The record is a 101-nucleotide RNA sequence from Ophiocordyceps polyrhachis-furcata, which matches "Small nucleolar RNA Z13/snr52" in Rfam.
Taxonomically the source falls in Ophiocordyceps polyrhachis-furcata (Eukaryota, Dikarya, sordariomyceta, Ophiocordycipitaceae).
The family has 42 seed sequences and 1,203 matches in Rfam 15.1.
[Rfam]
RNA sequence: ACUUCCAUGAUGAAAUAUUACGGAUGUAAAAUCUUUUCAUGUCGGAAAGCGCAUAAAUUCACCAUGUCGAGAUUUCCGUUGCCUUCCUUCUGAUGCGGAAG
Numbered sequence: 001a002c003u004u005c006c007a008u009g010a011u012g013a014a015a016u017a018u019u020a021c022g023g024a025u026g027u028a029a030a031a032u033c034u035u036u037u038c039a040u041g042u043c044g045g046a047a048a049g050c051g052c053a054u055a056a057a058u059u060c061a062c063c064a065u066g067u068c069g070a071g072a073u074u075u076c077c078g079u080u081g082c083c084u085u086c087c088u089u090c091u092g093a094u095g096c097g098g099a100a101g
Stems, first nucleotide, its partner, number of pairs: 002098001021078004